[Rfam]
RNA sequence: CAUUUCCAUUCGCUGAGUUCCAUUUUGGGAACGGGGGAACCGCUGUGAGGCUUUAUCGCAUUGACGCGUGAAGCUAGCAGAACGAUUUUAUCAGGGGUGAAUCCUGAGCAGGCGCAAGCAUGCUUCAGGUAGGGCGAACUCUCACGUCCGAAUCCGUCAGCUAACCUCGUAAGCGUACCGAGAGGGGUA
Numbered sequence: 001c002a003u004u005u006c007c008a009u010u011c012g013c014u015g016a017g018u019u020c021c022a023u024u025u026u027g028g029g030a031a032c033g034g035g036g037g038a039a040c041c042g043c044u045g046u047g048a049g050g051c052u053u054u055a056u057c058g059c060a061u062u063g064a065c066g067c068g069u070g071a072a073g074c075u076a077g078c079a080g081a082a083c084g085a086u087u088u089u090a091u092c093a094g095g096g097g098u099g100a101a102u103c104c105u106g107a108g109c110a111g112g113c114g115c116a117a118g119c120a121u122g123c124u125u126c127a128g129g130u131a132g133g134g135c136g137a138a139c140u141c142u143c144a145c146g147u148c149c150g151a152a153u154c155c156g157u158c159a160g161c162u163a164a165c166c167u168c169g170u171a172a173g174c175g176u177a178c179c180g181a182g183a184g185g186g187g188u189a
Stems, first nucleotide, its partner, number of pairs: 011175004018030003031170006041094001095155003103129006132149004
RNA: c-di-AMP riboswitch aptamer (ydaO/yuaA leader)
Organism: Paenibacillus athensensis